[Rfam]
RNA sequence: UGACAGCGCGCGGGAGAGACCCCGCCAGUACGGGGCGCCGACGGGGCAAUACUCCCCAGUAACCUCUCAGGCACCAUGGACCGCGCGAAAGAG
Numbered sequence: 001u002g003a004c005a006g007c008g009c010g011c012g013g014g015a016g017a018g019a020c021c022c023c024g025c026c027a028g029u030a031c032g033g034g035g036c037g038c039c040g041a042c043g044g045g046g047c048a049a050u051a052c053u054c055c056c057c058a059g060u061a062a063c064c065u066c067u068c069a070g071g072c073a074c075c076a077u078g079g080a081c082c083g084c085g086c087g088a089a090a091g092a093g
Base pairs, nucleotide, nucleotide: 007087008086009085010084011083012082013081020035021034022033023032037072038071039070040068041067044066045065046064050059
Dot-bracket structure: ......(((((((......((((........)))).(((((..(((...(........)....))))).)))........)))))))......

Notes: This 93-nucleotide RNA sequence from Nocardiopsis sp. JB363 belongs to the Rfam family "Glycine riboswitch aptamer". Pairs were carried over by alignment from the consensus structure. Lineage of the source: Bacteria > Bacillati > Actinomycetes > Streptosporangiales > Nocardiopsis.